Salmonella enterica Typhi npcRNA 44: a 97-nucleotide RNA from Enterobacteriaceae bacterium strain FGI 57.
It scores 95 bits against the family's covariance model.
By type it is a non-coding RNA gene.
RNA sequence: CUUUAAAAAUCUGGAUCAAGCUGAAAAUUGAAACGACACACUUUAAGUGUGUUCGAGUCUCUCAAAUUUUCGCAACUCUGAAGUGAAACAUCUUCGG
Numbered sequence: 001c002u003u004u005a006a007a008a009a010u011c012u013g014g015a016u017c018a019a020g021c022u023g024a025a026a027a028u029u030g031a032a033a034c035g036a037c038a039c040a041c042u043u044u045a046a047g048u049g050u051g052u053u054c055g056a057g058u059c060u061c062u063c064a065a066a067u068u069u070u071c072g073c074a075a076c077u078c079u080g081a082a083g084u085g086a087a088a089c090a091u092c093u094u095c096g097g
Stems, first nucleotide, its partner, number of pairs: 020073002023071007034055003038052004078096001080095002083092001
A reference for the family is Chinni et al. (2010), "Experimental identification and characterization of 97 novel npcRNA candidates in Salmonella enterica serovar Typhi", Nucleic Acids Res. The organism belongs to Enterobacteriaceae, within Bacteria.